The family of this 151-nucleotide RNA sequence from Aotus nancymaae is "U4 spliceosomal RNA". By type it is a spliceosomal small nuclear RNA. The family has 177 seed sequences and 32,178 matches in Rfam 15.1. The base pairs follow the family's consensus structure, which is taken from published work. On this family, see Zwieb, Nucleic Acids Res 1997: "The uRNA database".
RNA sequence: AGCUCUGCAGUGGCACUAUCAUAGCCAAUGAGGUUUAUCCAAGGCACAAUCAUCGCUACUUGAGAACUAUUCCCCAUACCUCGCCAUGAUGACUUCAAAUAUGGUUGACAAUGGCAAUUUCUUUUUUUCUUUUUCUUUUUUUUUUUUGAGA
Numbered sequence: 001a002g003c004u005c006u007g008c009a010g011u012g013g014c015a016c017u018a019u020c021a022u023a024g025c026c027a028a029u030g031a032g033g034u035u036u037a038u039c040c041a042a043g044g045c046a047c048a049a050u051c052a053u054c055g056c057u058a059c060u061u062g063a064g065a066a067c068u069a070u071u072c073c074c075c076a077u078a079c080c081u082c083g084c085c086a087u088g089a090u091g092a093c094u095u096c097a098a099a100u101a102u103g104g105u106u107g108a109c110a111a112u113g114g115c116a117a118u119u120u121c122u123u124u125u126u127u128u129c130u131u132u133u134u135c136u137u138u139u140u141u142u143u144u145u146u147u148g149a150g151a
Base pairs, nucleotide, nucleotide: 018050019049022046024045025044026043032040033039083115084114085113087110088109090107091106092105093104094103128151129150130149131148
Dot-bracket structure: .................((..(.(((.....((.....))..))))..))................................(((.((.(((((........))))).))..)))............((((................))))